[Rfam]
RNA sequence: AAGCGAGGACGACCUCCCCCGGCCCGGGAAACUGAAGGCGGGACGACCCGU
Dot-bracket structure: ..(.((((....)))).)...................(((((....)))))
Numbered sequence: 001a002a003g004c005g006a007g008g009a010c011g012a013c014c015u016c017c018c019c020c021g022g023c024c025c026g027g028g029a030a031a032c033u034g035a036a037g038g039c040g041g042g043a044c045g046a047c048c049c050g051u
Stems, first nucleotide, its partner, number of pairs: 003018001005016004038051005
Rfam assigns this 51-nucleotide RNA from Limibacillus halophilus to the family "Guanidine-II riboswitch aptamer (mini-ykkC)". Taxonomically the source falls in Limibacillus (Bacteria, Pseudomonadati, Alphaproteobacteria, Rhodovibrionaceae). Rfam 15.1 lists 1,589 matches to the family in 1,229 species.